This 58-nucleotide RNA sequence from Planobispora longispora belongs to the Rfam family "L17-Actino-Proteobacteria ribosomal protein leader". By type it is a cis-regulatory leader. The literature on the family includes a 2020 paper in BMC Microbiol by Eckert and Weinberg, "Discovery of 20 novel ribosomal leader candidates in bacteria and archaea". The organism belongs to Planobispora, within Bacteria.
RNA sequence: GCGGGAACCGCAAGCGGCUCCCGCGGCCUGAUCCCGGUACCUGACACGGCCGGGGCAG
Numbered sequence: 001g002c003g004g005g006a007a008c009c010g011c012a013a014g015c016g017g018c019u020c021c022c023g024c025g026g027c028c029u030g031a032u033c034c035c036g037g038u039a040c041c042u043g044a045c046a047c048g049g050c051c052g053g054g055g056c057a058g
Base pairs, nucleotide, nucleotide: 001024002023003022004021005020006019008017009016028058029057030056032055033054034053035052036051037050038049